MIR6135 microRNA precursor family: a 114-nucleotide RNA sequence from Panax ginseng. Pairs were carried over by alignment from the consensus structure, which was predicted with RNAalifold. Its family is annotated with RISC complex and miRNA-mediated post-transcriptional gene silencing in the Gene Ontology.
RNA sequence: AAGUUUAUUUUUGGGUAAGUUGGUCAAUUGACCAAUAGAGUAUUAACAUGUAGGCGAGACUUUAUGUGUGUUAAUAUUUUACUGACCAAUUGAUCAACUUACCCAAAAAAACUU
Numbered sequence: 001a002a003g004u005u006u007a008u009u010u011u012u013g014g015g016u017a018a019g020u021u022g023g024u025c026a027a028u029u030g031a032c033c034a035a036u037a038g039a040g041u042a043u044u045a046a047c048a049u050g051u052a053g054g055c056g057a058g059a060c061u062u063u064a065u066g067u068g069u070g071u072u073a074a075u076a077u078u079u080u081a082c083u084g085a086c087c088a089a090u091u092g093a094u095c096a097a098c099u100u101a102c103c104c105a106a107a108a109a110a111a112c113u114u
Stems, first nucleotide, its partner, number of pairs: 001114005008109004015102016033084002036081007044073003048069002051066002